The record is a 76-nucleotide RNA sequence from Dorea formicigenerans, which matches "c-di-GMP-I riboswitch aptamer" in Rfam. Pairs were carried over by alignment from the consensus structure, which is taken from published work.
RNA sequence: UAAUAUUUUGGGCAAAACAGACGAAAGUCUGCGACGCAAAGCUAUAGGACCUGUAAAAUGGUAGCCAGUUGUAAAA
Numbered sequence: 001u002a003a004u005a006u007u008u009u010g011g012g013c014a015a016a017a018c019a020g021a022c023g024a025a026a027g028u029c030u031g032c033g034a035c036g037c038a039a040a041g042c043u044a045u046a047g048g049a050c051c052u053g054u055a056a057a058a059u060g061g062u063a064g065c066c067a068g069u070u071g072u073a074a075a076a
Stems, first nucleotide, its partner, number of pairs: 012037002018031005040070004047066002049062003
Rfam's curators write: GEMM was predicted in a large-scale screen for bacterial structured RNA regulatory elements. Genes associated with GEMM are involved in a diverse array of functions, including chemotaxis regulation, signal transduction, secretion and chitin.